Shown here is a 111-nucleotide RNA from Cohnella herbarum, a member of the family "Guanidine-I riboswitch aptamer". NCBI's taxonomy places the organism under Bacteria, Bacillati, Bacillota, Caryophanales, Cohnella. A search with the family's covariance model found it, with a score of 82 bits.
[Rfam]
RNA sequence: UAAUAGGCUUUCUAGGGUUCCACGGUGCUCAGCAAGGUACCGGUUCGGUCCGAGAGGAAGCGCGUCUUCCGAUAGCGAAGAUGAACACGGCGGGAUAAAAACCCGGGAGUA
Dot-bracket structure: ......((((((..((...(((((((((........))))))..).)).))....)))))).(((((((.......)))))))..(.[...(((.......))).)..]..